The record is a 106-nucleotide sequence from Paenibacillus pectinilyticus, which matches "Guanidine-I riboswitch aptamer" in Rfam.
[Rfam]
RNA sequence: UACAAAGUUUUCUAGGGUUCCGCAGGGAGGUUUUCAACUCUGGCUGGUCCAAGAGAAGACGCACAGCUAACCCCUGUGUCCACGGAGGGAUAAAAGCCCGGGAGAU
Number, nucleotide and partner (000 for none) at each position: 001u000002a000003c000004a000005a000006a000007g060008u059009u058010u057011u056012c055013u000014a000015g050016g049017g000018u000019u000020c047021c046022g044023c042024a041025g040026g039027g038028a000029g000030g000031u000032u000033u000034u000035c000036a000037a000038c027039u026040c025041u024042g023043g000044c022045u000046g021047g020048u000049c016050c015051a000052a000053g000054a000055g012056a011057a010058g009059a008060c007061g079062c078063a077064c076065a075066g074067c000068u000069a000070a000071c000072c000073c000074c066075u065076g064077u063078g062079u061080c000081c101082a000083c104084g000085g000086a000087g099088g098089g097090a000091u000092a000093a000094a000095a000096g000097c089098c088099c087100g000101g081102g000103a000104g083105a000106u000